[Rfam]
The record is a 236-nucleotide RNA from Paraglaciecola sp. MB-3u-78, which matches "Group II catalytic intron D1-D4-6" in Rfam. About the family: Group II introns are found in rRNA, tRNA and mRNA of organelles in fungi, plants and protists, and also in mRNA in bacteria. The literature on the family includes a 2001 paper in Trends Genet by Bonen and Vogel, "The ins and outs of group II introns". Taxonomically the source falls in Paraglaciecola (Bacteria, Pseudomonadati, Gammaproteobacteria, Alteromonadaceae).

RNA sequence: CAAGUCCUCUACUUGGUAAGGUAAGCACACCGCCAAGUCCCCGAGUCAUGGGCUUUGCACCGUAAGGUGUCGAGUUAAGCGUUGACAGGGGAAACCAUAGGCCGAGUAUUGAGCUGCGAAAUCCUCACUUAAGCGUGCUGACCUUGUUGGGUGAAGGGGAAGGCAAUACGACCAAUAGAUGAAAUGCCAUAUACGGCGGUGCUAGUUAUUGGUUGACGCUUCGCAGUCAUAGACCU
Numbered sequence: 001c002a003a004g005u006c007c008u009c010u011a012c013u014u015g016g017u018a019a020g021g022u023a024a025g026c027a028c029a030c031c032g033c034c035a036a037g038u039c040c041c042c043g044a045g046u047c048a049u050g051g052g053c054u055u056u057g058c059a060c061c062g063u064a065a066g067g068u069g070u071c072g073a074g075u076u077a078a079g080c081g082u083u084g085a086c087a088g089g090g091g092a093a094a095c096c097a098u099a100g101g102c103c104g105a106g107u108a109u110u111g112a113g114c115u116g117c118g119a120a121a122u123c124c125u126c127a128c129u130u131a132a133g134c135g136u137g138c139u140g141a142c143c144u145u146g147u148u149g150g151g152u153g154a155a156g157g158g159g160a161a162g163g164c165a166a167u168a169c170g171a172c173c174a175a176u177a178g179a180u181g182a183a184a185u186g187c188c189a190u191a192u193a194c195g196g197c198g199g200u201g202c203u204a205g206u207u208a209u210u211g212g213u214u215g216a217c218g219c220u221u222c223g224c225a226g227u228c229a230u231a232g233a234c235c236u
Base pairs, nucleotide, nucleotide: 012037013036014035015034016033020031021030022029039091040090041089042088045086046085047084048083049081050080051076052075053074054073055072057070058069059068060067061066111228113227114226115225116224117223118222131221132220133219134218135217136216137164138163139162142158143157144156145155169215170214171213172212173211174210175209176208177207178206
Dot-bracket structure: ...........(((((...(((......))).))))).((((..(((((((((((.(((((....))))).)))))...)).)))).))))...................(.((((((............(((((((((..((((.........))))...)))....((((((((((...........................)))))))))))))))))))))))........